[Rfam]
RNA: mir-8517 microRNA precursor family
RNA sequence: UUGGACGGAUUAACUAUUGAACUGUUCUGUCCCUCUCUAACAGAGAACAAUUUGUUCUUUGACAGAGAGUGACAAAACAGUUCAAUAGUUAAUCCGUCCAGUAAC
Numbered sequence: 001u002u003g004g005a006c007g008g009a010u011u012a013a014c015u016a017u018u019g020a021a022c023u024g025u026u027c028u029g030u031c032c033c034u035c036u037c038u039a040a041c042a043g044a045g046a047a048c049a050a051u052u053u054g055u056u057c058u059u060u061g062a063c064a065g066a067g068a069g070u071g072a073c074a075a076a077a078c079a080g081u082u083c084a085a086u087a088g089u090u091a092a093u094c095c096g097u098c099c100a101g102u103a104a105c
Stems, first nucleotide, its partner, number of pairs: 001101003008094018026066006046056004
Dot-bracket structure: (((....((((((((((((((((((((((((..............((((...))))....))))))..........))))))))))))))))))....)))....